[Rfam]
RNA: Small nucleolar RNA SNORD59
Organism: Rhinopomastus cyanomelas
RNA sequence: CCUUCGCUGAUGAGGAACUGUUUGACUUUCGUUCUUCUGAGCUCGCUGAAGCCGCUUGUAUCCACCUGAGGAGG
Numbered sequence: 001c002c003u004u005c006g007c008u009g010a011u012g013a014g015g016a017a018c019u020g021u022u023u024g025a026c027u028u029u030c031g032u033u034c035u036u037c038u039g040a041g042c043u044c045g046c047u048g049a050a051g052c053c054g055c056u057u058g059u060a061u062c063c064a065c066c067u068g069a070g071g072a073g074g
Base pairs, nucleotide, nucleotide: 001074002073003072005070